The record is a 61-nucleotide sequence from Aureimonas sp. Leaf454, which matches "terC RNA" in Rfam. The family's consensus secondary structure is taken from published work.

RNA sequence: UCCCUGAUCCGGGCCCCUCUGGCGGGAGCCGUCGGCUCUCUCGCCAUGUCGGAUCGCUCUU
Numbered sequence: 001u002c003c004c005u006g007a008u009c010c011g012g013g014c015c016c017c018u019c020u021g022g023c024g025g026g027a028g029c030c031g032u033c034g035g036c037u038c039u040c041u042c043g044c045c046a047u048g049u050c051g052g053a054u055c056g057c058u059c060u061u
Base pairs, nucleotide, nucleotide: 006055007054008053009052010051011050012049022044023043024042025041026040027039028038

Description:
A search with the family's covariance model found it, with a score of 55 bits.